[Rfam]
RNA sequence: AUCCGAUGAUGCUUAGAGAAUUGUCCUUACCAUAUGAAAAAGUCUUUUUUUUAUUAGUCUUCUUCUACAUAUUUCUGAGGAUC
Numbered sequence: 001a002u003c004c005g006a007u008g009a010u011g012c013u014u015a016g017a018g019a020a021u022u023g024u025c026c027u028u029a030c031c032a033u034a035u036g037a038a039a040a041a042g043u044c045u046u047u048u049u050u051u052u053a054u055u056a057g058u059c060u061u062c063u064u065c066u067a068c069a070u071a072u073u074u075c076u077g078a079g080g081a082u083c
Stems, first nucleotide, its partner, number of pairs: 001082004